Overview:
Small nucleolar RNA snoR31/Z110/Z27: a 95-nucleotide RNA sequence from Hevea brasiliensis. Rfam links the family to the GO terms nucleolus and RNA processing.

[Rfam]
Nucleotides: 095
Stems, first nucleotide, its partner, number of pairs: 001095007
Number, partner (000 for none) and nucleotide at each position: 001095a002094u003093c004092a005091u006090c007089a008000a009000a010000u011000g012000a013000u014000g015000a016000a017000a018000c019000u020000u021000g022000g023000a024000a025000g026000a027000u028000c029000u030000u031000a032000g033000g034000a035000c036000a037000c038000c039000u040000u041000c042000c043000u044000a045000c046000a047000u048000a049000g050000c051000u052000u053000u054000u055000a056000c057000a058000g059000c060000u061000a062000u063000g064000g065000a066000u067000g068000a069000g070000a071000a072000u073000a074000a075000c076000a077000u078000u079000u080000c081000c082000g083000u084000u085000c086000u087000g088000a089007u090006g091005a092004u093003g094002a095001u

The organism belongs to Hevea, within Eukaryota. It is annotated as a C/D-box small nucleolar RNA. The family has 8 seed sequences and 571 matches in Rfam 15.1. It scores 55 bits against the family's covariance model.